A member of the RNA family "Small nucleolar RNA SNORA22" from Echinops telfairi, 134 nucleotides long.

RNA sequence: UCGCACAGUGAACACCCGAGUGUGCUUCGUAGUUCCCUUGGCCUUGACACUGUGCUAGAGCAAUGUCUGGUCUUUUCCUUUGCAUUGAGAGGCACAUUCAUCCUUUCAAAUGUAUUCAAAAGGCCAGCACAUCU
Numbered sequence: 001u002c003g004c005a006c007a008g009u010g011a012a013c014a015c016c017c018g019a020g021u022g023u024g025c026u027u028c029g030u031a032g033u034u035c036c037c038u039u040g041g042c043c044u045u046g047a048c049a050c051u052g053u054g055c056u057a058g059a060g061c062a063a064u065g066u067c068u069g070g071u072c073u074u075u076u077c078c079u080u081u082g083c084a085u086u087g088a089g090a091g092g093c094a095c096a097u098u099c100a101u102c103c104u105u106u107c108a109a110a111u112g113u114a115u116u117c118a119a120a121a122g123g124c125c126a127g128c129a130c131a132u133c134u
Base pairs, nucleotide, nucleotide: 003055004054005053006052007051008050013046014045016041017040018039019038020037022035024033025032026031057073058072059071061069062068079120080119081118082117083112084111085110086109087107088106089105090104091103092102